[Rfam]
RNA sequence: UCGUAACACGAACCGGUGCUAAAGGAUCCUGCCUAACGGUGCUGUCAGGGCAGGGACCCUUUAGCACCGGUUUGUGUUCUGAA
Number, nucleotide and partner (000 for none) at each position: 001u000002c000003g080004u000005a078006a077007c076008a075009c074010g073011a072012a071013c070014c069015g068016g067017u066018g065019c064020u063021a062022a061023a060024g059025g058026a000027u056028c000029c054030u053031g000032c049033c048034u047035a000036a045037c044038g000039g000040u000041g000042c000043u000044g037045u036046c000047a034048g033049g032050g000051c000052a000053g030054g029055g000056a027057c000058c025059c024060u023061u022062u021063a020064g019065c018066a017067c016068c015069g014070g013071u012072u011073u010074g009075u008076g007077u006078u005079c000080u003081g000082a000083a000
RNA: MIR5387 microRNA precursor family